[Rfam]
A member of the RNA family "tRNA" from Phaeomoniella chlamydospora, 71 nucleotides long. About the family: Transfer RNA (tRNA) molecules are approximately 80 nucleotides in length. It is annotated as a transfer RNA.
RNA sequence: GGAAUAAUAGGUAAAAGGUUUACCACGUGAUUGCAGAUCAUAGUUUUGAGGUUCGAUUCCUCAUUAUUCCU
Numbered sequence: 001g002g003a004a005u006a007a008u009a010g011g012u013a014a015a016a017g018g019u020u021u022a023c024c025a026c027g028u029g030a031u032u033g034c035a036g037a038u039c040a041u042a043g044u045u046u047u048g049a050g051g052u053u054c055g056a057u058u059c060c061u062c063a064u065u066a067u068u069c070c071u
Base pairs, nucleotide, nucleotide: 001070002069003068004067005066006065007064010024011023012022013021027041028040029039030038047063048062049061050060051059